[Rfam]
RNA: Small nucleolar RNA SNORD30
RNA sequence: CUACAGGGUGACUUACGUGGGAUCUCGUUCGGCUGAUGGCUUGCCUCUGAGACUGGCAAAUCUUUCUUUC
Numbered sequence: 001c002u003a004c005a006g007g008g009u010g011a012c013u014u015a016c017g018u019g020g021g022a023u024c025u026c027g028u029u030c031g032g033c034u035g036a037u038g039g040c041u042u043g044c045c046u047c048u049g050a051g052a053c054u055g056g057c058a059a060a061u062c063u064u065u066c067u068u069u070c
Base pairs, nucleotide, nucleotide: 023052024051025050026049027048031045032044033043